This 75-nucleotide RNA sequence belongs to the Rfam family "nadA riboswitch". The sequence is in the family's curated seed alignment.
RNA sequence: GGCUUCAACAUCCCCGCAGGCUGGGUGCGGAUUCGGACUUCAAGUUCGAAGACGCGCAGUGAGCCGGCUGGAGCC
Numbered sequence: 001g002g003c004u005u006c007a008a009c010a011u012c013c014c015c016g017c018a019g020g021c022u023g024g025g026u027g028c029g030g031a032u033u034c035g036g037a038c039u040u041c042a043a044g045u046u047c048g049a050a051g052a053c054g055c056g057c058a059g060u061g062a063g064c065c066g067g068c069u070g071g072a073g074c075c
Base pairs, nucleotide, nucleotide: 001075002074003073004072005071006070007069013061014059016068017067019065020064021063022062023060025057026056027055028054029053032050033049034048035047036046037045038044039043
Dot-bracket structure: (((((((.....[[.((.(((((.(((((..((((((((...))))))))..))))).])])))).)))))))))